[Rfam]
RNA sequence: AGUGUGCAAUAGACUCACCUCCACGUGGUGUAUCCUGGGCAACGUAUUCUCAUACGGCAAAAAAGUCCAU
Numbered sequence: 001a002g003u004g005u006g007c008a009a010u011a012g013a014c015u016c017a018c019c020u021c022c023a024c025g026u027g028g029u030g031u032a033u034c035c036u037g038g039g040c041a042a043c044g045u046a047u048u049c050u051c052a053u054a055c056g057g058c059a060a061a062a063a064a065g066u067c068c069a070u
Stems, first nucleotide, its partner, number of pairs: 001036002004033004017029003043056005
Dot-bracket structure: ((.((((.........(((.......))))))).))......(((((....)))))..............
HDV ribozyme from F. prausnitzii: a 70-nucleotide RNA from Rodentolepis nana. The match comes from Rfam's covariance-model search (45 bits). The family's consensus secondary structure is taken from published work. The family has 48 seed sequences and 3,803 matches in Rfam 15.1.